[Rfam]
RNA: Bacterial RNase P class A
RNA sequence: UGAGCUGGCCGGGCGACCGCGUGGAGGAGACUCCUCGAGGAAGGUCCGGGCUCCACAGGGCAAGGUGGUGGGUAACACCCACCCGGGGUGACCCGCGGGAAAGUGCCACAGAGAACAGACCGCCGUGACUGCCUCGGCAGGAGCGGUAAGGGUGAAACGGUGGUGUAAGAGACCACCAGCGCACCGGGUGACCGGAGCGGCUCGGUAAACCCCACCAGGAGCAAGGUCAAGAAGGACGAGGGUCUGCGGACCGUCGUCCGCGCGGACGUUCGAGGGCGGCCCGCCCGAGUCCGCGGGUAGACCGCACGAGGCUGUCGGCAACGGCAGCCCUAGAUGGAUGGUCGCCGACCGUGGCGCCGCGAGGCGCGCGGAGACAGAACCCGGCCUACAGGCCAGCUCAUCCC
Numbered sequence: 001u002g003a004g005c006u007g008g009c010c011g012g013g014c015g016a017c018c019g020c021g022u023g024g025a026g027g028a029g030a031c032u033c034c035u036c037g038a039g040g041a042a043g044g045u046c047c048g049g050g051c052u053c054c055a056c057a058g059g060g061c062a063a064g065g066u067g068g069u070g071g072g073u074a075a076c077a078c079c080c081a082c083c084c085g086g087g088g089u090g091a092c093c094c095g096c097g098g099g100a101a102a103g104u105g106c107c108a109c110a111g112a113g114a115a116c117a118g119a120c121c122g123c124c125g126u127g128a129c130u131g132c133c134u135c136g137g138c139a140g141g142a143g144c145g146g147u148a149a150g151g152g153u154g155a156a157a158c159g160g161u162g163g164u165g166u167a168a169g170a171g172a173c174c175a176c177c178a179g180c181g182c183a184c185c186g187g188g189u190g191a192c193c194g195g196a197g198c199g200g201c202u203c204g205g206u207a208a209a210c211c212c213c214a215c216c217a218g219g220a221g222c223a224a225g226g227u228c229a230a231g232a233a234g235g236a237c238g239a240g241g242g243u244c245u246g247c248g249g250a251c252c253g254u255c256g257u258c259c260g261c262g263c264g265g266a267c268g269u270u271c272g273a274g275g276g277c278g279g280c281c282c283g284c285c286c287g288a289g290u291c292c293g294c295g296g297g298u299a300g301a302c303c304g305c306a307c308g309a310g311g312c313u314g315u316c317g318g319c320a321a322c323g324g325c326a327g328c329c330c331u332a333g334a335u336g337g338a339u340g341g342u343c344g345c346c347g348a349c350c351g352u353g354g355c356g357c358c359g360c361g362a363g364g365c366g367c368g369c370g371g372a373g374a375c376a377g378a379a380c381c382c383g384g385c386c387u388a389c390a391g392g393c394c395a396g397c398u399c400a401u402c403c404c
Stems, first nucleotide, its partner, number of pairs: 001400010011389001012346007020037002023034004042387003046384005051221004058282004064216004068082005083097001084095004098212002103210002105206003120151002122147005129140004159177006179201001180199003184195004225303004262294006274286004310329008